This 108-nucleotide RNA sequence from Rhizobium sp. BK275 belongs to the Rfam family "Rhizobiales sRNA Atu_At1". The source organism's lineage runs through Bacteria, Pseudomonadota, Alphaproteobacteria, Rhizobiaceae and Rhizobium. Rfam 15.1 lists 200 matches to the family in 177 species. A search with the family's covariance model found it, with a score of 112 bits.
RNA sequence: GUGCGGGCCGUGUCAACCGGACGCGACAGGGAUGGCGAACAUGGCGAUUUUUCCGGUUUCCCGCCAUGGCUAACGAAAUGGCAGACGAGCACCCGACCUGUCCGGUCC
Numbered sequence: 001g002u003g004c005g006g007g008c009c010g011u012g013u014c015a016a017c018c019g020g021a022c023g024c025g026a027c028a029g030g031g032a033u034g035g036c037g038a039a040c041a042u043g044g045c046g047a048u049u050u051u052u053c054c055g056g057u058u059u060c061c062c063g064c065c066a067u068g069g070c071u072a073a074c075g076a077a078a079u080g081g082c083a084g085a086c087g088a089g090c091a092c093c094c095g096a097c098c099u100g101u102c103c104g105g106u107c108c
Stems, first nucleotide, its partner, number of pairs: 006107004011023004025102006034093002037090001040068007069082003